[Rfam]
Shown here is a 27-nucleotide RNA sequence from Limosa lapponica, a member of the family "ribosomal frameshift site". It scores 34 bits against the family's covariance model. It is annotated as a frameshift element. The family's consensus secondary structure is taken from published work. For this family Rfam cites "An extended signal involved in eukaryotic -1 frameshifting operates through modification of the E site tRNA" (Bekaert and Rousset, Mol Cell, 2005).
RNA sequence: GGGGGGUCUGAGCGCCCCCCAAAUCCU
Numbered sequence: 001g002g003g004g005g006g007u008c009u010g011a012g013c014g015c016c017c018c019c020c021a022a023a024u025c026c027u
Base pairs, nucleotide, nucleotide: 001020002019003018004017005016006015012027014025